[Rfam]
RNA sequence: CUACCGGCCAUCGAAAGGUGACGGGAGGCUCGCUCAGAAGUCAGCAGAGGGCAUAGUAGGUGCAACCCAAGGUGAUGAGCCACAAGAGGCGGCACCGAAGGCC
Dot-bracket structure: ((..(.(.((((....)))).).)..))............((....)).(((......(((((............................)))))....)))
The family of this 103-nucleotide RNA from Curvibacter sp. AEP1-3 is "Group II catalytic intron D1-D4-1". Lineage of the source: Bacteria > Pseudomonadota > Burkholderiales > Comamonadaceae > Curvibacter. Group II introns are found in rRNA, tRNA and mRNA of organelles in fungi, plants and protists, and also in mRNA in bacteria. For this family Rfam cites "Control of branch-site choice by a group II intron" (Chu et al., EMBO J, 2001). It scores 56 bits against the family's covariance model.